[Rfam]
RNA sequence: UCUUGCUGCAACAUCACAGUGACCACAUAGGUCAGUCAAUGUGAGCACUGCGAUGUGGUAUUAAGAU
Numbered sequence: 001u002c003u004u005g006c007u008g009c010a011a012c013a014u015c016a017c018a019g020u021g022a023c024c025a026c027a028u029a030g031g032u033c034a035g036u037c038a039a040u041g042u043g044a045g046c047a048c049u050g051c052g053a054u055g056u057g058g059u060a061u062u063a064a065g066a067u
Stems, first nucleotide, its partner, number of pairs: 001066005007060003011056005017050005024043005030037001

Annotation:
This 67-nucleotide sequence from Branchiostoma belcheri belongs to the Rfam family "mir-2072 microRNA precursor family". The sequence is in the family's curated seed alignment. Its family is annotated with RISC complex and miRNA-mediated post-transcriptional gene silencing in the Gene Ontology. Taxonomically the source falls in Branchiostoma (Eukaryota, Opisthokonta, Leptocardii, Branchiostomatidae).